[Rfam]
RNA sequence: AUCGAGUCACCGCCUAAUCGGCGCUCCGGCGCCGAACCGGGGACCCACGUUACUUGGGGUGAAUCCCUGGACGGUCGGGGCAGCGUCGCUGCUCGCGACAGCCCAGGGUAGGGCGCAUUCUUCCAUGCCCGAACCCGUCAGCUAACUCGGUCGGCGGGCUAAGGAAGAACGG
Numbered sequence: 001a002u003c004g005a006g007u008c009a010c011c012g013c014c015u016a017a018u019c020g021g022c023g024c025u026c027c028g029g030c031g032c033c034g035a036a037c038c039g040g041g042g043a044c045c046c047a048c049g050u051u052a053c054u055u056g057g058g059g060u061g062a063a064u065c066c067c068u069g070g071a072c073g074g075u076c077g078g079g080g081c082a083g084c085g086u087c088g089c090u091g092c093u094c095g096c097g098a099c100a101g102c103c104c105a106g107g108g109u110a111g112g113g114c115g116c117a118u119u120c121u122u123c124c125a126u127g128c129c130c131g132a133a134c135c136c137g138u139c140a141g142c143u144a145a146c147u148c149g150g151u152c153g154g155c156g157g158g159c160u161a162a163g164g165a166a167g168a169a170c171g172g
Stems, first nucleotide, its partner, number of pairs: 011156004018035007036151006046056002057136003065108006111130004
RNA: c-di-AMP riboswitch aptamer (ydaO/yuaA leader)